About this RNA:
Bacterial large subunit ribosomal RNA: a 544-nucleotide part of an RNA from Pedobacter sp. PACM 27299. Gene Ontology terms of the family: structural constituent of ribosome and ribosome.
[Rfam]
RNA sequence: AAAUAAGAGCACACAGGGGAUGCCUUGGCUCUCAGAGGCGAUGAAGGACGUGAUAAGCUGCGAUAAGCUUCGGGUAUUAGCAAAUAUGAAUUAAUCCGGAGAUUUCCGAAUGGGGAAACCUGGCUAGUUGAAGACUAGUCGUACAAUGUACGCAAACCUGCCGAACUGAAACAUCUAAGUAAGCAGAGGAAGAGAAAAUAAUAAUGAUUUCCUAAGUAGUGGCGAGCGAACGGGAAAGAGCCCAAACCAGUUAUGUUACGGCAUAGCUGGGGUUGUAGGACUACGAUAUGGCAUUAAUGAAAUGAAGUGGAACAGGAUGGGAAGCCUGGCAAUAUAGAGUGAGAGCCUCGUACACGUAAGUAACAUUAGUCUAGUAGUAUCCUGAGUACCGCGAGGUCGGAGACGCCUUGUGGGAAUCUGCCGGCACCAUCCGGUAAGGCUAAAUACUCCUGAGAGACCGAUAGUGAACCAGUACCGUGAGGGAAAGGUGAAAAGAACCCCGAACAGGGGAGUGAAAUAGAACCUGAAACUGUGUGCUUACAAG
Numbered sequence: 001a002a003a004u005a006a007g008a009g010c011a012c013a014c015a016g017g018g019g020a021u022g023c024c025u026u027g028g029c030u031c032u033c034a035g036a037g038g039c040g041a042u043g044a045a046g047g048a049c050g051u052g053a054u055a056a057g058c059u060g061c062g063a064u065a066a067g068c069u070u071c072g073g074g075u076a077u078u079a080g081c082a083a084a085u086a087u088g089a090a091u092u093a094a095u096c097c098g099g100a101g102a103u104u105u106c107c108g109a110a111u112g113g114g115g116a117a118a119c120c121u122g123g124c125u126a127g128u129u130g131a132a133g134a135c136u137a138g139u140c141g142u143a144c145a146a147u148g149u150a151c152g153c154a155a156a157c158c159u160g161c162c163g164a165a166c167u168g169a170a171a172c173a174u175c176u177a178a179g180u181a182a183g184c185a186g187a188g189g190a191a192g193a194g195a196a197a198a199u200a201a202u203a204a205u206g207a208u209u210u211c212c213u214a215a216g217u218a219g220u221g222g223c224g225a226g227c228g229a230a231c232g233g234g235a236a237a238g239a240g241c242c243c244a245a246a247c248c249a250g251u252u253a254u255g256u257u258a259c260g261g262c263a264u265a266g267c268u269g270g271g272g273u274u275g276u277a278g279g280a281c282u283a284c285g286a287u288a289u290g291g292c293a294u295u296a297a298u299g300a301a302a303u304g305a306a307g308u309g310g311a312a313c314a315g316g317a318u319g320g321g322a323a324g325c326c327u328g329g330c331a332a333u334a335u336a337g338a339g340u341g342a343g344a345g346c347c348u349c350g351u352a353c354a355c356g357u358a359a360g361u362a363a364c365a366u367u368a369g370u371c372u373a374g375u376a377g378u379a380u381c382c383u384g385a386g387u388a389c390c391g392c393g394a395g396g397u398c399g400g401a402g403a404c405g406c407c408u409u410g411u412g413g414g415a416a417u418c419u420g421c422c423g424g425c426a427c428c429a430u431c432c433g434g435u436a437a438g439g440c441u442a443a444a445u446a447c448u449c450c451u452g453a454g455a456g457a458c459c460g461a462u463a464g465u466g467a468a469c470c471a472g473u474a475c476c477g478u479g480a481g482g483g484a485a486a487g488g489u490g491a492a493a494a495g496a497a498c499c500c501c502g503a504a505c506a507g508g509g510g511a512g513u514g515a516a517a518u519a520g521a522a523c524c525u526g527a528a529a530c531u532g533u534g535u536g537c538u539u540a541c542a543a544g
Stems, first nucleotide, its partner, number of pairs: 007539010022524001023488002027459002029456007036448002038153002046107003049062003068101007077089003112121003122140007142150003157188001158186004168175002198205002208444001209236005219227002239441004247270007277383003281377004293370007302361002307355003313328004331335001337349003389413009420435005475482002498510004